[Rfam]
RNA sequence: GGUCGCUUAGCUUAAUUGGUAGAGCGUAGUACUUACGAGCCUAAGGUCACGAGUUCGAAUCUCGUAGUGACCA
Numbered sequence: 001g002g003u004c005g006c007u008u009a010g011c012u013u014a015a016u017u018g019g020u021a022g023a024g025c026g027u028a029g030u031a032c033u034u035a036c037g038a039g040c041c042u043a044a045g046g047u048c049a050c051g052a053g054u055u056c057g058a059a060u061c062u063c064g065u066a067g068u069g070a071c072c073a
Base pairs, nucleotide, nucleotide: 001072002071003070004069005068006067007066010025011024012023013022027043028042029041049065050064051063052062053061
Dot-bracket structure: (((((((..((((........)))).(((...........))).....(((((.......)))))))))))).